The family of this 50-nucleotide RNA from Halarchaeum acidiphilum is "eL15-Euryarchaeota ribosomal protein leader".
[Rfam]
RNA sequence: CCCGUCGUGACGGGACGACAUGUGGUGCGCGUCGCGCACUGAAUCGCAAG
Numbered sequence: 001c002c003c004g005u006c007g008u009g010a011c012g013g014g015a016c017g018a019c020a021u022g023u024g025g026u027g028c029g030c031g032u033c034g035c036g037c038a039c040u041g042a043a044u045c046g047c048a049a050g
Stems, first nucleotide, its partner, number of pairs: 001014005016046003024040007
It is annotated as a cis-regulatory leader.